[Rfam]
RNA sequence: CCCAGGACUUCGUCCUGGGCUGUCAUGGCGCGGCCUUUCAGGCCU
Numbered sequence: 001c002c003c004a005g006g007a008c009u010u011c012g013u014c015c016u017g018g019g020c021u022g023u024c025a026u027g028g029c030g031c032g033g034c035c036u037u038u039c040a041g042g043c044c045u
Base pairs, nucleotide, nucleotide: 001019002018003017004016005015006014007013008012032044033043034042035041036040

A member of the RNA family "Acido-Lenti-1 RNA", 45 nucleotides long. The base pairs follow the family's consensus structure, which is taken from published work. The family has 87 seed sequences and 2,607 matches in Rfam 15.1. It scores 40 bits against the family's covariance model.